RNA: Bacterial large subunit ribosomal RNA, nucleotides 9 to 519
RNA sequence: GAAUAAGCGUACACGGUGGAUGCCUUGGCAGUCAGAGGCGAUGAAGGACGUACUAACCUGCGAAAAGCUGUGGGAAGCCGGUAAGAGGCGUUAGACCCGCAGAUAUCCGAAUGGGGAAACCCAGUGCAUUUAUGCACUAUCGUUACAUGAAUACAUAGUGUAACGAGGCAAACCGGGAGAACUGAAACAUCUAAGUACCCCGAGGAAAAGAAAUCAACCGAGAUUCCGUUAGUAGCGGCGAGCGAACGCGGAGUAGCCCUUAAGCUACAUUGGUGUUAGUGGAAUACUCUGGAAAGAGUAGCGAUACAGGGUGAUAGCCCCGUACACGACAACACCUUUAUAGUGAAAACGAGUAGGACGGGACACGAGACAUCCUGUUUGAACAUGGGGGGACCAUCCUCCAAGGCUAAAUACUCCUGACUGACCGAUAGUGAACCAGUACCGUGAGGGAAAGGCGAAAAGAACCCCUGUAAGGGGAGUGAAAUAGAACCUGAAACCGUGUACGUACAAG
Dot-bracket structure: ......((((((((((.....(((..(((((((((((((......((((((........))).....(((((((..(((.......)))......)))))))...)))....(((....)))((((((....)))))).(((((((((.........))))))))).))...(((((......((....)).......)))).).........((....))..((((((.....((.....))....)))))..((((......(((.(..((((((.(((...(((((......)))))..(...).(((.......)))...)))...))))))..).)))............((((((((.........))))))))......(((((......)))))..))))..)..)).))))))).))...............((....))....)).........((((.....)))).............).....)))))))))).....
Numbered sequence: 001g002a003a004u005a006a007g008c009g010u011a012c013a014c015g016g017u018g019g020a021u022g023c024c025u026u027g028g029c030a031g032u033c034a035g036a037g038g039c040g041a042u043g044a045a046g047g048a049c050g051u052a053c054u055a056a057c058c059u060g061c062g063a064a065a066a067g068c069u070g071u072g073g074g075a076a077g078c079c080g081g082u083a084a085g086a087g088g089c090g091u092u093a094g095a096c097c098c099g100c101a102g103a104u105a106u107c108c109g110a111a112u113g114g115g116g117a118a119a120c121c122c123a124g125u126g127c128a129u130u131u132a133u134g135c136a137c138u139a140u141c142g143u144u145a146c147a148u149g150a151a152u153a154c155a156u157a158g159u160g161u162a163a164c165g166a167g168g169c170a171a172a173c174c175g176g177g178a179g180a181a182c183u184g185a186a187a188c189a190u191c192u193a194a195g196u197a198c199c200c201c202g203a204g205g206a207a208a209a210g211a212a213a214u215c216a217a218c219c220g221a222g223a224u225u226c227c228g229u230u231a232g233u234a235g236c237g238g239c240g241a242g243c244g245a246a247c248g249c250g251g252a253g254u255a256g257c258c259c260u261u262a263a264g265c266u267a268c269a270u271u272g273g274u275g276u277u278a279g280u281g282g283a284a285u286a287c288u289c290u291g292g293a294a295a296g297a298g299u300a301g302c303g304a305u306a307c308a309g310g311g312u313g314a315u316a317g318c319c320c321c322g323u324a325c326a327c328g329a330c331a332a333c334a335c336c337u338u339u340a341u342a343g344u345g346a347a348a349a350c351g352a353g354u355a356g357g358a359c360g361g362g363a364c365a366c367g368a369g370a371c372a373u374c375c376u377g378u379u380u381g382a383a384c385a386u387g388g389g390g391g392g393a394c395c396a397u398c399c400u401c402c403a404a405g406g407c408u409a410a411a412u413a414c415u416c417c418u419g420a421c422u423g424a425c426c427g428a429u430a431g432u433g434a435a436c437c438a439g440u441a442c443c444g445u446g447a448g449g450g451a452a453a454g455g456c457g458a459a460a461a462g463a464a465c466c467c468c469u470g471u472a473a474g475g476g477g478a479g480u481g482a483a484a485u486a487g488a489a490c491c492u493g494a495a496a497c498c499g500u501g502u503a504c505g506u507a508c509a510a511g
Stems, first nucleotide, its partner, number of pairs: 007506010022491001023455002027426002029423007036415002038169002046108003049062003068102007077089003113122003123138006140166009173204001174202004184191002214221002224411001225252005235243002255408004265343003269339001272336006279327003285300005303307001309321003356380008387402005442449002465477004